[Rfam]
A member of the RNA family "Small nucleolar RNA U83B" from Microcebus murinus, 93 nucleotides long. Pairs were carried over by alignment from the consensus structure. From the family's description: U83B belongs to the C/D family of snoRNAs. For this family Rfam cites "The intron-containing L3 ribosomal protein gene (RPL3): sequence analysis and identification of U43 and of two novel intronic small nucleolar RNAs" (Duga et al., Biochim Biophys Acta, 2000).

RNA sequence: CCUGUUCAGCAAUGAGGCCUGGAAUGUGCGCUAGGCACGGUGCCCCGAGUCAGACUGCGGAACCAUUCCUGUUGCCUGCCUUCUGAGAACAGC
Numbered sequence: 001c002c003u004g005u006u007c008a009g010c011a012a013u014g015a016g017g018c019c020u021g022g023a024a025u026g027u028g029c030g031c032u033a034g035g036c037a038c039g040g041u042g043c044c045c046c047g048a049g050u051c052a053g054a055c056u057g058c059g060g061a062a063c064c065a066u067u068c069c070u071g072u073u074g075c076c077u078g079c080c081u082u083c084u085g086a087g088a089a090c091a092g093c
Base pairs, nucleotide, nucleotide: 002092003091004090005089